[Rfam]
RNA: Small nucleolar RNA SNORD77
Organism: Catagonus wagneri
RNA sequence: AUACUAUGAUGGUUGCAUAGUUCAACAGACUGAAUCAUGAAAGAGAUAGCAUUUGUCUGAUGUAUCU
Numbered sequence: 001a002u003a004c005u006a007u008g009a010u011g012g013u014u015g016c017a018u019a020g021u022u023c024a025a026c027a028g029a030c031u032g033a034a035u036c037a038u039g040a041a042a043g044a045g046a047u048a049g050c051a052u053u054u055g056u057c058u059g060a061u062g063u064a065u066c067u
Stems, first nucleotide, its partner, number of pairs: 001065004006038005013028003044054004